[Rfam]
RNA: SAM-I/IV (S-adenosyl methionine) riboswitch aptamer
Organism: Sphingomonas sp. FARSPH
RNA sequence: GCCAGACAUCAAGAGUCGGGCCGACGCCCGGCACCAACCUGCCGAUCCCGGCAAGGUGGUGCUCCUUCCCGCAAGGGAAGGAGGAUGUGGCCGAACCGGCAACGAACGGGACACGC
Dot-bracket structure: .....(((((....(.(((((....))))).)(((..((((((..[[[[))).))).))).......................))))).((((...)))).......]]]].....